[Rfam]
RNA sequence: AGACUGCGAUAAACAUUCAUUGCUGUCGGUGGGUUUGAUAUGAGCGUAACUCACUGAUCGGUGAAUGCAAACUGCAGUUCA
Numbered sequence: 001a002g003a004c005u006g007c008g009a010u011a012a013a014c015a016u017u018c019a020u021u022g023c024u025g026u027c028g029g030u031g032g033g034u035u036u037g038a039u040a041u042g043a044g045c046g047u048a049a050c051u052c053a054c055u056g057a058u059c060g061g062u063g064a065a066u067g068c069a070a071a072c073u074g075c076a077g078u079u080c081a
Stems, first nucleotide, its partner, number of pairs: 002080002004077005014067009025058007033050003
mir-181 microRNA precursor family: an 81-nucleotide RNA sequence from Chanos chanos. A search with the family's covariance model found it, with a score of 67 bits. Pairs were carried over by alignment from the consensus structure, which was predicted with PFOLD. Gene Ontology terms of the family: miRNA-mediated post-transcriptional gene silencing and RISC complex. The source organism's lineage runs through Eukaryota, Chordata, Teleostomi, Actinopterygii and Chanos.